Rfam assigns this 236-nucleotide sequence from Sporosarcina luteola to the family "T-box leader".

[Rfam]
Nucleotides: 236
Base pairs, nucleotide, nucleotide: 007101008100015096016095017094018093025084026083027082028081029080030079037073038072039071048070049069050068051067052066053065104148105147106146108144109143110142150160151159152158177190178189179188180187181186197232198231199230207229208228209227210226211225212224213223214222215221
Number, partner (000 for none) and nucleotide at each position: 001000c002000g003000a004000a005000a006000a007101g008100c009000a010000g011000a012000g013000a014000c015096g016095g017094a018093a019000a020000g021000a022000g023000u024000a025084u026083u027082c028081u029080u030079g031000u032000u033000g034000c035000g036000a037073c038072a039071u040000a041000u042000c043000a044000g045000a046000g047000a048070g049069c050068c051067u052066g053065u054000g055000g056000u057000c058000g059000g060000u061000g062000u063000g064000a065053a066052c067051a068050g069049g070048c071039a072038u073037g074000a075000c076000g077000a078000a079030c080029a081028a082027g083026a084025g085000g086000a087000a088000u089000u090000g091000g092000a093018u094017u095016c096015c097000c098000g099000a100008g101007c102000u103000u104148g105147a106146u107000c108144g109143g110142u111000g112000a113000a114000a115000a116000u117000g118000g119000g120000a121000u122000u123000u124000u125000a126000c127000a128000a129000c130000g131000a132000a133000g134000u135000c136000c137000c138000a139000g140000u141000a142110g143109c144108c145000c146106a147105u148104c149000a150160c151159g152158u153000a154000u155000c156000c157000c158152g159151c160150g161000u162000u163000a164000a165000g166000g167000g168000a169000u170000u171000a172000g173000a174000g175000u176000g177190g178189c179188c180187u181186g182000c183000a184000c185000g186181c187180a188179g189178g190177c191000u192000a193000a194000u195000u196000c197232g198231g199230g200000u201000g202000g203000u204000a205000c206000c207229a208228c209227g210226g211225u212224u213223g214222a215221u216000a217000a218000a219000a220000c221215a222214u223213c224212a225211g226210u227209c228208g229207u230199c231198c232197c233000u234000u235000u236000c

NCBI's taxonomy places the organism under Bacteria, Bacillota, Caryophanales, Caryophanaceae, Sporosarcina. Rfam classes the family as a cis-regulatory leader. About the family: Uncharged tRNA acts as the effector for transcription antitermination of genes in the T-box leader family. T-boxes are found upstream of many aminoacyl-tRNA synthetase genes and some amino acid biosynthetic genes usually in Gram-positive bacteria. The anticodon of a specific tRNA base pairs to a specifier sequence within the T-box motif, and the NCCA acceptor tail of the tRNA base pairs to a conserved bulge in the T-box antiterminator hairpin. Its family is annotated with tRNA binding in the Gene Ontology. A search with the family's covariance model found it, with a score of 124 bits.